[Rfam]
RNA sequence: UAGAGAGAUUAUUAUAUUCUACUGUAUUCACGAUAUAUAUUUGUGAAUACAGUGACGUAAAUAAUGCAAUUCAUGGUCUAUUCAGCUAUUUUUAAAUGAAAAGUGAAUCAAUUAACAUAAUAGGCUCCU
Numbered sequence: 001u002a003g004a005g006a007g008a009u010u011a012u013u014a015u016a017u018u019c020u021a022c023u024g025u026a027u028u029c030a031c032g033a034u035a036u037a038u039a040u041u042u043g044u045g046a047a048u049a050c051a052g053u054g055a056c057g058u059a060a061a062u063a064a065u066g067c068a069a070u071u072c073a074u075g076g077u078c079u080a081u082u083c084a085g086c087u088a089u090u091u092u093u094a095a096a097u098g099a100a101a102a103g104u105g106a107a108u109c110a111a112u113u114a115a116c117a118u119a120a121u122a123g124g125c126u127c128c129u
Base pairs, nucleotide, nucleotide: 003127004126009123010122011121012120013119014118015117017115018114021112023110024109026108027107028106029105030104031103034098035097036096037091039089040088043086